[Rfam]
RNA sequence: GAAUAGAAUGAUGAAUGUGUUUUUCCCUAUUGGUUUGAUUGCCUGAAUGAUGGCAUUUUGUAUUAGCUCUAUCUGACUAUUC
Dot-bracket structure: .((((...............................(..((((........)))).)....................)))).
Numbered sequence: 001g002a003a004u005a006g007a008a009u010g011a012u013g014a015a016u017g018u019g020u021u022u023u024u025c026c027c028u029a030u031u032g033g034u035u036u037g038a039u040u041g042c043c044u045g046a047a048u049g050a051u052g053g054c055a056u057u058u059u060g061u062a063u064u065a066g067c068u069c070u071a072u073c074u075g076a077c078u079a080u081u082c
Stems, first nucleotide, its partner, number of pairs: 002081004037057001040055004
Small nucleolar RNA Z102/R77: an 82-nucleotide sequence from Arachis duranensis. Its family is annotated with nucleolus and RNA processing in the Gene Ontology. The match comes from Rfam's covariance-model search (73 bits). Taxonomically the source falls in Arachis (Eukaryota, fabids, Fabales, dalbergioids sensu lato). Pairs were carried over by alignment from the consensus structure, which was predicted with PFOLD.